[Rfam]
Nucleotides: 266
Base pairs, nucleotide, nucleotide: 002014003013004012021263022262023261024260025259029255030254033251034250036249038247041244042243043242044241045240046239047238049236050235051234053232054231055230056229068222069221070220072218073217074216075215076214078209079208080207081206082205083203084202085201087198088197089196090195091194092193093192094191095190098136099135100134102133103132104131106127108126109125110124111123112122114121115120138142146189147188148187149186150185151184152183157180158179159178164173165172166171
Number, partner (000 for none) and nucleotide at each position: 001000c002014g003013g004012c005000u006000g007000u008000a009000a010000u011000g012004g013003u014002c015000a016000u017000u018000c019000u020000c021263a022262u023261c024260u025259g026000a027000g028000a029255g030254g031000c032000g033251c034250a035000u036249u037000g038247a039000a040000a041244c042243c043242g044241u045240a046239a047238c048000u049236c050235c051234u052000u053232u054231c055230c056229c057000u058000u059000c060000c061000a062000a063000u064000g065000c066000u067000g068222a069221a070220g071000c072218g073217a074216g075215g076214g077000c078209c079208c080207a081206g082205u083203u084202c085201g086000a087198a088197u089196c090195c091194g092193g093192u094191g095190g096000u097000g098136c099135c100134c101000g102133a103132c104131c105000a106127a107000c108126u109125c110124g111123u112122a113000c114121a115120g116000g117000u118000a119000a120115c121114u122112u123111g124110c125109g126108a127106u128000g129000a130000a131104g132103g133102u134100g135099g136098g137000c138142u139000u140000a141000a142138g143000c144000a145000a146189u147188g148187a149186a150185g151184u152183c153000g154000a155000c156000c157180g158179u159178c160000g161000a162000g163000g164173g165172a166171a167000g168000c169000a170000a171166u172165u173164c174000u175000g176000c177000a178159g179158a180157c181000a182000c183152g184151a185150c186149u187148u188147c189146a190095c191094c192093a193092u194091u195090g196089g197088a198087u199000g200000g201085c202084g203083g204000u205082g206081c207080u208079g209078g210000a211000a212000u213000a214076c215075c216074c217073u218072c219000a220070c221069u222068u223000c224000g225000g226000u227000u228000u229056g230055g231054g232053a233000u234051a235050g236049g237000u238047g239046u240045u241044a242043u243042g244041g245000a246000c247038u248000g249036a250034u251033g252000a253000a254030u255029c256000a257000a258000c259025c260024a261023g262022g263021u264000a265000u266000u

This 266-nucleotide RNA from Diplodia corticola belongs to the Rfam family "Fungal signal recognition particle RNA".
Lineage of the source: Eukaryota > Opisthokonta > Fungi > leotiomyceta > Diplodia.
It is annotated as a non-coding RNA gene.
It scores 143 bits against the family's covariance model.
On this family, see Rosenblad et al., Nucleic Acids Res 2003: "SRPDB: Signal Recognition Particle Database".